[Rfam]
RNA: Small nucleolar RNA Z122
RNA sequence: AUUGGGAAAUGAUGCGAAUAUAUCAACAUAAUAUCAGAGGCGACAGCUCUGCUGAUUUGUUUUUUUGCACGUCAGUCUGAUCCCAUU
Numbered sequence: 001a002u003u004g005g006g007a008a009a010u011g012a013u014g015c016g017a018a019u020a021u022a023u024c025a026a027c028a029u030a031a032u033a034u035c036a037g038a039g040g041c042g043a044c045a046g047c048u049c050u051g052c053u054g055a056u057u058u059g060u061u062u063u064u065u066u067g068c069a070c071g072u073c074a075g076u077c078u079g080a081u082c083c084c085a086u087u
Base pairs, nucleotide, nucleotide: 001087003085004084005083006082007081